Rfam assigns this 300-nucleotide RNA from alpha proteobacterium HIMB59 to the family "Alphaproteobacteria transfer-messenger RNA".
Nucleotides: 300
Stems, first nucleotide, its partner, number of pairs: 040052004056174005066167007082152002086149002091107005108135007175193002187201003265281004272296003
Number, partner (000 for none) and nucleotide at each position: 001000g002000g003000u004000g005000u006000u007000u008000a009000a010000a011000u012000g013000a014000u015000u016000c017000a018000u019000u020000a021000u022000u023000a024000a025000g026000a027000c028000u029000a030000u031000a032000u033000u034000a035000u036000c037000u038000c039000c040052g041051u042050u043049g044000u045000u046000u047000a048000u049043c050042a051041a052040c053000u054000a055000u056174a057173g058172c059171a060170a061000u062000a063000a064000a065000c066167g067166c068165u069164a070163u071162a072161u073000g074000u075000a076000a077000u078000a079000g080000g081000u082152g083151u084000a085000u086149c087148g088000g089000a090000c091107u092106c093105g094104g095103g096000g097000g098000c099000g100000g101000u102000a103095c104094c105093c106092g107091a108135c109134a110133c111132c112131u113130c114129c115000a116000c117000c118000a119000a120000a121000a122000a123000u124000u125000a126000u127000u128000u129114g130113g131112g132111g133110g134109u135108g136000a137000u138000a139000u140000a141000g142000g143000u144000u145000u146000g147000a148087c149086g150000u151083g152082c153000u154000c155000u156000g157000a158000a159000g160000g161072a162071u163070a164069u165068a166067g167066u168000u169000u170060u171059u172058g173057c174056u175193c176192g177000u178000u179000g180000u181000a182000a183000g184000c185000g186000u187201u188200u189199c190000u191000u192176c193175g194000u195000c196000a197000u198000a199189g200188a201187a202000a203000c204000u205000u206000u207000a208000a209000a210000a211000u212000a213000a214000u215000u216000g217000c218000u219000a220000a221000c222000g223000a224000u225000a226000a227000u228000g229000a230000a231000u232000u233000a234000g235000c236000a237000c238000u239000c240000g241000c242000u243000g244000c245000u246000u247000a248000a249000u250000c251000u252000a253000a254000u255000u256000a257000g258000g259000u260000a261000a262000g263000c264000g265281c266280g267279g268278c269000u270000u271000u272296g273295g274294g275000g276000c277000g278268g279267c280266c281265g282000g283000g284000c285000a286000a287000c288000a289000g290000a291000a292000c293000g294274c295273c296272c297000c298000u299000u300000u

A reference for the family is Williams and Bartel (1996), "Phylogenetic analysis of tmRNA secondary structure", RNA. A search with the family's covariance model found it, with a score of 198 bits. The source organism's lineage runs through Bacteria, Pseudomonadota, Alphaproteobacteria, Candidatus Pelagibacterales and Candidatus Pelagibacteraceae. The family's RNA type in Rfam is non-coding RNA gene.